[Rfam]
RNA sequence: GGUGCCACUCGAUAGCUGAGGCUCCUUCGCGGACACAAGCCAGCGAUCCCAAACGUCGAGAGACGCCCCGGAUCAGGACAGACCACCCCGGCCUAAGGGGUGAUCCCGAUUGGCUCCCAGCGGAUUCCGCCGGGUUACGACGCGAAGUGCCAAAGGUCUGACGAGGAGGGGCAAU
Dot-bracket structure: ....((.((((.[.(((..(((..(((((((.......(((((.(((((....((((....))))....)))))......((.(..(((......])))..).))....))))).(((.............)))......))))))).)))...)))....)...))).))....
Numbered sequence: 001g002g003u004g005c006c007a008c009u010c011g012a013u014a015g016c017u018g019a020g021g022c023u024c025c026u027u028c029g030c031g032g033a034c035a036c037a038a039g040c041c042a043g044c045g046a047u048c049c050c051a052a053a054c055g056u057c058g059a060g061a062g063a064c065g066c067c068c069c070g071g072a073u074c075a076g077g078a079c080a081g082a083c084c085a086c087c088c089c090g091g092c093c094u095a096a097g098g099g100g101u102g103a104u105c106c107c108g109a110u111u112g113g114c115u116c117c118c119a120g121c122g123g124a125u126u127c128c129g130c131c132g133g134g135u136u137a138c139g140a141c142g143c144g145a146a147g148u149g150c151c152a153a154a155g156g157u158c159u160g161a162c163g164a165g166g167a168g169g170g171g172c173a174a175u
Stems, first nucleotide, its partner, number of pairs: 005171002008168003011162001013096001015157003020151003025147007039114005045074005054065004081105002084102001087099003116134003